[Rfam]
RNA sequence: UGAACUGAGGGGCGCUGCAGCAGCUUUUACUGUCAGGCUCAGUUCAGGAAACACUGUUCAACGGCGCCCGUUCAAC
Numbered sequence: 001u002g003a004a005c006u007g008a009g010g011g012g013c014g015c016u017g018c019a020g021c022a023g024c025u026u027u028u029a030c031u032g033u034c035a036g037g038c039u040c041a042g043u044u045c046a047g048g049a050a051a052c053a054c055u056g057u058u059c060a061a062c063g064g065c066g067c068c069c070g071u072u073c074a075a076c
Stems, first nucleotide, its partner, number of pairs: 002045007021032003
SAH (S-adenosyl-L-homocysteine) riboswitch aptamer: a 76-nucleotide RNA sequence from Marinospirillum alkaliphilum. The family's consensus secondary structure is taken from published work. The match comes from Rfam's covariance-model search (58 bits).